Archaeal Small RNA 154: a 132-nucleotide sequence from Methanosarcina sp. MTP4. Pairs were carried over by alignment from the consensus structure, which was predicted with RNAfold. It scores 88 bits against the family's covariance model. NCBI's taxonomy places the organism under Archaea, Methanobacteriota, Methanomicrobia, Methanosarcinales, Methanosarcina. Its family is annotated with negative regulation of translational initiation, regulation of mRNA stability and protein binding in the Gene Ontology. Rfam's curators write: Exclusively expressed under nitrogen deficiency, has a central regulatory role in nitrogen metabolism affecting nitrogenase and glutamine synthetase by masking the ribosome binding site or positively affecting transcript stability. Global nitrogen repressor NrpR direct binding.
Nucleotides: 132
Base pairs, nucleotide, nucleotide: 002121003120005119006118007117008116009115010114011113012112048067049066050065051063052062053061054060070103071102073099074098075097076096077095078094079093
Number, partner (000 for none) and nucleotide at each position: 001000c002121g003120g004000u005119u006118g007117c008116u009115u010114g011113c012112a013000a014000g015000c016000g017000g018000a019000c020000c021000u022000c023000g024000a025000a026000g027000c028000c029000u030000c031000a032000u033000u034000u035000c036000a037000c038000a039000c040000a041000c042000a043000c044000a045000c046000a047000c048067g049066a050065g051063a052062a053061u054060c055000a056000c057000a058000a059000c060054g061053a062052u063051u064000a065050c066049u067048c068000u069000a070103g071102a072000u073099g074098g075097a076096u077095a078094g079093g080000u081000u082000c083000a084000u085000c086000c087000c088000u089000u090000c091000u092000u093079c094078c095077u096076g097075u098074c099073c100000g101000u102071u103070c104000c105000g106000u107000u108000c109000g110000c111000u112012u113011g114010u115009g116008a117007g118006u119005a120003c121002c122000a123000c124000c125000c126000c127000a128000u129000c130000a131000u132000a